[Rfam]
RNA sequence: CGUUAAGGGCGUAUGGCGGAUGCCUAGGCUCACAGAGGCGAAGAAGGACGUGGUAAGCUGCGAAAAGCUACGGGGAUUAGCACACAUGAGAUGAUCCGUAGAUAUCCCAAUGGGGCAACCCGGUAUACUGAAGGUAUAUCACUCGAAAGAGGGCAAACCCGGAGAACUGAAACAUCUAAGUACCCGGAGGAAAAGAAAUCAAAAGAGAUUCCCAGAGUAGCGGCGAGCGAAAUGGGAGUAGCCGAGAUUGUAUGAAUAUUAGAAUAACCUGGAAAGGUUAACCAAAGAAGGUGAUAGUCCUGUAUAAGAAAUGAGUAUAAUACGUAUUAAGUAGGGCGGGACACGAGAAAUCCUGUUUGAAGAAAGGGGGACCAUCCUCUAAGGCUAAAUACUCCUGUGAGACCGAUAGUGAACUAGUACUGUGAAGGAAAGGUGAAAAGCACUUUGAAUAAAAGGGUGAAAGAGAACCUGAAACCGUACGCCUACAAG
Numbered sequence: 001c002g003u004u005a006a007g008g009g010c011g012u013a014u015g016g017c018g019g020a021u022g023c024c025u026a027g028g029c030u031c032a033c034a035g036a037g038g039c040g041a042a043g044a045a046g047g048a049c050g051u052g053g054u055a056a057g058c059u060g061c062g063a064a065a066a067g068c069u070a071c072g073g074g075g076a077u078u079a080g081c082a083c084a085c086a087u088g089a090g091a092u093g094a095u096c097c098g099u100a101g102a103u104a105u106c107c108c109a110a111u112g113g114g115g116c117a118a119c120c121c122g123g124u125a126u127a128c129u130g131a132a133g134g135u136a137u138a139u140c141a142c143u144c145g146a147a148a149g150a151g152g153g154c155a156a157a158c159c160c161g162g163a164g165a166a167c168u169g170a171a172a173c174a175u176c177u178a179a180g181u182a183c184c185c186g187g188a189g190g191a192a193a194a195g196a197a198a199u200c201a202a203a204a205g206a207g208a209u210u211c212c213c214a215g216a217g218u219a220g221c222g223g224c225g226a227g228c229g230a231a232a233u234g235g236g237a238g239u240a241g242c243c244g245a246g247a248u249u250g251u252a253u254g255a256a257u258a259u260u261a262g263a264a265u266a267a268c269c270u271g272g273a274a275a276g277g278u279u280a281a282c283c284a285a286a287g288a289a290g291g292u293g294a295u296a297g298u299c300c301u302g303u304a305u306a307a308g309a310a311a312u313g314a315g316u317a318u319a320a321u322a323c324g325u326a327u328u329a330a331g332u333a334g335g336g337c338g339g340g341a342c343a344c345g346a347g348a349a350a351u352c353c354u355g356u357u358u359g360a361a362g363a364a365a366g367g368g369g370g371a372c373c374a375u376c377c378u379c380u381a382a383g384g385c386u387a388a389a390u391a392c393u394c395c396u397g398u399g400a401g402a403c404c405g406a407u408a409g410u411g412a413a414c415u416a417g418u419a420c421u422g423u424g425a426a427g428g429a430a431a432g433g434u435g436a437a438a439a440g441c442a443c444u445u446u447g448a449a450u451a452a453a454a455g456g457g458u459g460a461a462a463g464a465g466a467a468c469c470u471g472a473a474a475c476c477g478u479a480c481g482c483c484u485a486c487a488a489g
Stems, first nucleotide, its partner, number of pairs: 007484010022469001023433002027404002029401007036393002038154002046107003049062003068101007077089003112121003122140007142151003158189001159187004169176002199206002209389001210237005220228002240386004249324005256312002259307003265280005283287001289301003334358008365380005420427002443455004

Shown here is a 489-nucleotide part of an RNA from Flavobacteriaceae bacterium Ap0902, a member of the family "Bacterial large subunit ribosomal RNA". The family has 102 seed sequences and 51,934 matches in Rfam 15.1. It scores 2641 bits against the family's covariance model. Lineage of the source: Bacteria > Pseudomonadati > Bacteroidota > Flavobacteriales > Flavobacteriaceae.